Overview
A member of the RNA family "MIR7504 microRNA precursor family" from Gossypium harknessii, 123 nucleotides long. Its family is annotated with RISC complex and miRNA-mediated post-transcriptional gene silencing in the Gene Ontology. It scores 110 bits against the family's covariance model. The base pairs follow the family's consensus structure, which was predicted with RNAalifold.

[Rfam]
RNA sequence: AAUAGGAGCACGACAAAUCAGAAUUUUCCUCCUAGUUUUCAAUUUUUUCCUCCUAAAAAAAUUUAAAUCCAACUAAAAAUGCUAAAAAUUAGGAGGAAAAAUUUGAUUUAUCAUGCUCCUAUU
Numbered sequence: 001a002a003u004a005g006g007a008g009c010a011c012g013a014c015a016a017a018u019c020a021g022a023a024u025u026u027u028c029c030u031c032c033u034a035g036u037u038u039u040c041a042a043u044u045u046u047u048u049c050c051u052c053c054u055a056a057a058a059a060a061a062u063u064u065a066a067a068u069c070c071a072a073c074u075a076a077a078a079a080u081g082c083u084a085a086a087a088a089u090u091a092g093g094a095g096g097a098a099a100a101a102u103u104u105g106a107u108u109u110a111u112c113a114u115g116c117u118c119c120u121a122u123u
Stems, first nucleotide, its partner, number of pairs: 001123010012112002015109008024100004029095011041083001045079004